[Rfam]
RNA sequence: AGCACCUGCUGUCUUAUCGCGCUCCGAUUCGUUGGGGGGAGGAAAGUCCGGGCAGCGCAGAGCACCAUACUUCCUAACGGGAAGGAGGCCGGUUGGCGACGACCGGCCGACAGCCAGUGCCACAGAAAAUAUACCGCCGAUUCGUCGGUAAGGGUGAAAAGGUAGAGUAAGAGCCUACCGCCCGGCGGGUAACCGACGGGGCAGGGUAAACCUUAUGGGCUGAAAGACCAAAUAUGCGUCGGACGCGAGGCUGCUCGUCUCCGUAGUCUUCGGGCGAUGCCGACGCGGGUAGGUCGAUAGAGGGCGACGGCGACGGCGUCCCCAGAUAAAUGAUGAGAGCCUUACCAAAAGGUGAGGAACAGAACCCGGCUUAUAGGCAGGUGCUGAAU
Numbered sequence: 001a002g003c004a005c006c007u008g009c010u011g012u013c014u015u016a017u018c019g020c021g022c023u024c025c026g027a028u029u030c031g032u033u034g035g036g037g038g039g040a041g042g043a044a045a046g047u048c049c050g051g052g053c054a055g056c057g058c059a060g061a062g063c064a065c066c067a068u069a070c071u072u073c074c075u076a077a078c079g080g081g082a083a084g085g086a087g088g089c090c091g092g093u094u095g096g097c098g099a100c101g102a103c104c105g106g107c108c109g110a111c112a113g114c115c116a117g118u119g120c121c122a123c124a125g126a127a128a129a130u131a132u133a134c135c136g137c138c139g140a141u142u143c144g145u146c147g148g149u150a151a152g153g154g155u156g157a158a159a160a161g162g163u164a165g166a167g168u169a170a171g172a173g174c175c176u177a178c179c180g181c182c183c184g185g186c187g188g189g190u191a192a193c194c195g196a197c198g199g200g201g202c203a204g205g206g207u208a209a210a211c212c213u214u215a216u217g218g219g220c221u222g223a224a225a226g227a228c229c230a231a232a233u234a235u236g237c238g239u240c241g242g243a244c245g246c247g248a249g250g251c252u253g254c255u256c257g258u259c260u261c262c263g264u265a266g267u268c269u270u271c272g273g274g275c276g277a278u279g280c281c282g283a284c285g286c287g288g289g290u291a292g293g294u295c296g297a298u299a300g301a302g303g304g305c306g307a308c309g310g311c312g313a314c315g316g317c318g319u320c321c322c323c324a325g326a327u328a329a330a331u332g333a334u335g336a337g338a339g340c341c342u343u344a345c346c347a348a349a350a351g352g353u354g355a356g357g358a359a360c361a362g363a364a365c366c367c368g369g370c371u372u373a374u375a376g377g378c379a380g381g382u383g384c385u386g387a388a389u
Stems, first nucleotide, its partner, number of pairs: 001385010011374001012338007020039001022037006044372003048369005053222004065218005070084005085111001087108009112213002117211002119207003134153002136149005161179005180202001181200004186195003226295004236286006268279001270277002302321005308315002
A member of the RNA family "Bacterial RNase P class A" from Fibrella sp., 389 nucleotides long. About the family: Ribonuclease P (RNase P) is a ubiquitous endoribonuclease, found in archaea, bacteria and eukarya as well as chloroplasts and mitochondria. NCBI's taxonomy places the organism under Bacteria, Pseudomonadati, Bacteroidota, Spirosomataceae, Fibrella. Gene Ontology terms of the family: ribonuclease P activity, dimeric ribonuclease P complex and tRNA processing. By type it is a ribozyme. The match comes from Rfam's covariance-model search (257 bits).